The family of this 71-nucleotide RNA is "2dG-II purine riboswitch aptamer". Pairs were carried over by alignment from the consensus structure, which is taken from published work. On this family, see Weinberg et al., Proc Natl Acad Sci U S A 2017: "Bioinformatic analysis of riboswitch structures uncovers variant classes with altered ligand specificity".
RNA sequence: UAUCCUUAUAAUCUAGCUGAUUGGCGCUAGAGUAUCCACGACCGGACCUUAAUCCGGUGUAUCCAGGGAAA
Numbered sequence: 001u002a003u004c005c006u007u008a009u010a011a012u013c014u015a016g017c018u019g020a021u022u023g024g025c026g027c028u029a030g031a032g033u034a035u036c037c038a039c040g041a042c043c044g045g046a047c048c049u050u051a052a053u054c055c056g057g058u059g060u061a062u063c064c065a066g067g068g069a070a071a
Stems, first nucleotide, its partner, number of pairs: 001071001003069005012031006041058006